[Rfam]
Background:
Lysine riboswitch aptamer: a 182-nucleotide RNA from Viridibacillus arenosi. The match comes from Rfam's covariance-model search (126 bits). Pairs were carried over by alignment from the consensus structure, which is taken from published work.
RNA sequence: AGUGAUGAUAGAGGCGCGGAUUUCAAGAGUAAUCAGCAAGAGGAUGAGUAGAUCCUAUGACUGCUGACGAAAGGGGAGGCCGCCGAAGUGAUAAAUUGACUAUUUCCAAUUUAUUACUGGUUCUGCAUUUAACAAGUGUAGAAUUGUCAGAUCCGUUUCGGUUCUGGAGGGCUAUCUCACAU
Numbered sequence: 001a002g003u004g005a006u007g008a009u010a011g012a013g014g015c016g017c018g019g020a021u022u023u024c025a026a027g028a029g030u031a032a033u034c035a036g037c038a039a040g041a042g043g044a045u046g047a048g049u050a051g052a053u054c055c056u057a058u059g060a061c062u063g064c065u066g067a068c069g070a071a072a073g074g075g076g077a078g079g080c081c082g083c084c085g086a087a088g089u090g091a092u093a094a095a096u097u098g099a100c101u102a103u104u105u106c107c108a109a110u111u112u113a114u115u116a117c118u119g120g121u122u123c124u125g126c127a128u129u130u131a132a133c134a135a136g137u138g139u140a141g142a143a144u145u146g147u148c149a150g151a152u153c154c155g156u157u158u159c160g161g162u163u164c165u166g167g168a169g170g171g172c173u174a175u176c177u178c179a180c181a182u
Stems, first nucleotide, its partner, number of pairs: 007176005016083004021078004033067006087118012119145011147167005153161001